Source information: The record is a 101-nucleotide RNA sequence from Megasphaera cerevisiae, which matches "SAM riboswitch aptamer (S box leader)" in Rfam. Gene Ontology term of the family: regulation of gene expression.

[Rfam]
RNA sequence: CAUUCAUCGAGAGCAGCAGAAGGACUGGCCUAAUGAAGCUGCGGCAACCUCCGUCAUACGGAACGGUGCCAAUUCCAGCAGGAUUACCUGACAGAUGAGCU
Numbered sequence: 001c002a003u004u005c006a007u008c009g010a011g012a013g014c015a016g017c018a019g020a021a022g023g024a025c026u027g028g029c030c031u032a033a034u035g036a037a038g039c040u041g042c043g044g045c046a047a048c049c050u051c052c053g054u055c056a057u058a059c060g061g062a063a064c065g066g067u068g069c070c071a072a073u074u075c076c077a078g079c080a081g082g083a084u085u086a087c088c089u090g091a092c093a094g095a096u097g098a099g100c101u
Stems, first nucleotide, its partner, number of pairs: 003099006013042005021031003025078004043070004048066002050062004074093001079090004